[Rfam]
RNA sequence: GUUUCACAAAGGCAAACUACCAUCGAAAGAGUAGGGCGCAAAGCCAUGGGUCUAAAACGGUACUGUGUUAUACGCAUUCGGUUGCCGUUAUGAUUGCCAGGUUGCGGUA
Number, nucleotide and partner (000 for none) at each position: 001g000002u000003u000004u000005c000006a000007c000008a000009a000010a000011g000012g039013c038014a000015a000016a000017c034018u033019a032020c031021c000022a000023u030024c029025g000026a000027a000028a000029g024030a023031g020032u019033a018034g017035g000036g000037c000038g013039c012040a000041a000042a103043g102044c101045c100046a000047u099048g098049g097050g094051u093052c092053u000054a000055a000056a000057a088058c087059g086060g085061u084062a083063c000064u000065g000066u000067g000068u000069u000070a000071u000072a000073c000074g000075c000076a000077u000078u000079c000080g000081g000082u000083u062084g061085c060086c059087g058088u057089u000090a000091u000092g052093a051094u050095u000096g000097c049098c048099a047100g045101g044102u043103u042104g000105c000106g000107g000108u000109a000
Rfam assigns this 109-nucleotide sequence from Desulfocucumis palustris to the family "c-di-GMP-I riboswitch aptamer". Rfam links the family to the GO term cyclic-di-GMP binding.